RNA: Connexin-43 internal ribosome entry site (IRES)
Nucleotides: 199
Base pairs, nucleotide, nucleotide: 001007002006022137023136024135026133027132028131029130030129031128032127034123035122036121041117042116043115044114046112047111048110063091064090065089066088067087068086092107093106094105095104096103148195149194150193151192152191154190155189156188157187158186161182162181163180164178165177166176167175168174
Number, partner (000 for none) and nucleotide at each position: 001007a002006c003000g004000a005000g006002g007001u008000a009000u010000c011000a012000g013000c014000a015000c016000u017000u018000u019000u020000c021000u022137u023136u024135c025000a026133u027132u028131g029130g030129g031128g032127g033000a034123a035122a036121g037000g038000c039000g040000u041117g042116a043115g044114g045000a046112a047111a048110g049000u050000a051000c052000c053000a054000a055000a056000c057000a058000g059000c060000a061000g062000c063091a064090g065089a066088c067087u068086u069000u070000u071000a072000a073000a074000c075000u076000u077000u078000a079000a080000a081000c082000a083000g084000a085000c086068a087067g088066g089065u090064c091063u092107g093106a094105g095104a096103g097000c098000c099000u100000g101000a102000a103096c104095u105094c106093u107092c108000a109000u110048u111047u112046u113000u114044c115043c116042u117041u118000u119000g120000a121036c122035u123034u124000c125000a126000g127032c128031c129030u130029c131028c132027a133026a134000g135024g136023a137022g138000u139000u140000c141000c142000a143000c144000c145000a146000a147000c148195u149194u150193u151192g152191g153000c154190g155189c156188g157187c158186c159000g160000g161182c162181u163180u164178c165177a166176c167175u168174u169000u170000c171000a172000u173000u174168a175167a176166g177165u178164g179000a180163a181162a182161g183000a184000g185000a186158g187157g188156u189155g190154c191152c192151c193150a194149g195148a196000c197000a198000u199000g